The family of this 113-nucleotide RNA sequence from Lacrimispora algidixylanolytica is "FMN riboswitch aptamer (RFN element)". Its family is annotated with FMN binding in the Gene Ontology.
RNA sequence: UAAAAUCUUCGGGGCAGGGUGAAAUUCCCGACCGGUGGUAUAGCCCACGAACCGCAAGGUUGAUUCGGUUAAAUUCCGAAGCCGACAGUACAGUCUGAUAGUAGAAGACAAAA
Numbered sequence: 001u002a003a004a005a006u007c008u009u010c011g012g013g014g015c016a017g018g019g020u021g022a023a024a025u026u027c028c029c030g031a032c033c034g035g036u037g038g039u040a041u042a043g044c045c046c047a048c049g050a051a052c053c054g055c056a057a058g059g060u061u062g063a064u065u066c067g068g069u070u071a072a073a074u075u076c077c078g079a080a081g082c083c084g085a086c087a088g089u090a091c092a093g094u095c096u097g098a099u100a101g102u103a104g105a106a107g108a109c110a111a112a113a
Base pairs, nucleotide, nucleotide: 006108007107008106009105010104017029018028019027031094032093033084034083035048036047037046038045043082044081051060052059053058064080065079066078067077068076086097087096088095